[Rfam]
RNA sequence: GGUAUUCCUUAUCUGUCUAAUGGUUUGUUUUGGAGCCUGUCUUCCUGUGUUCUGAGGCAAAACACACGAAGACAGGCCCAUCAGUUUAGUUGCCGCUUACUUAAAUGCU
Numbered sequence: 001g002g003u004a005u006u007c008c009u010u011a012u013c014u015g016u017c018u019a020a021u022g023g024u025u026u027g028u029u030u031u032g033g034a035g036c037c038u039g040u041c042u043u044c045c046u047g048u049g050u051u052c053u054g055a056g057g058c059a060a061a062a063c064a065c066a067c068g069a070a071g072a073c074a075g076g077c078c079c080a081u082c083a084g085u086u087u088a089g090u091u092g093c094c095g096c097u098u099a100c101u102u103a104a105a106u107g108c109u
Base pairs, nucleotide, nucleotide: 001094002093003092004091022082023081031080033079035077036076037075038074039073040072041071044068046066047065048064050062051061053059054058
Dot-bracket structure: ((((.................((.......(.(.(((((((..(.(((.((.((...)).)).))).)..))))))).))))........))))...............
This 109-nucleotide RNA from Serratia proteamaculans belongs to the Rfam family "tp2". The sequence is in the family's curated seed alignment. The family's RNA type in Rfam is small RNA. The literature on the family includes a 2001 paper in Curr Biol by Rivas et al., "Computational identification of noncoding RNAs in E. coli by comparative genomics".